[Rfam]
RNA sequence: UUGCUGUGAUGACUUUCUUAGGACACCUUUGGAUUAACUGUGAAAAGAACGUUUGAUUCUGAGCAGC
Number, nucleotide and partner (000 for none) at each position: 001u066002u065003g064004c063005u000006g000007u000008g000009a000010u000011g000012a000013c000014u000015u000016u000017c000018u000019u000020a000021g000022g000023a000024c000025a000026c000027c000028u000029u000030u000031g000032g000033a000034u000035u000036a000037a000038c000039u000040g000041u000042g000043a000044a000045a000046a000047g000048a000049a000050c000051g000052u000053u000054u000055g000056a000057u000058u000059c000060u000061g000062a000063g004064c003065a002066g001067c000
RNA: Small nucleolar RNA SNORD58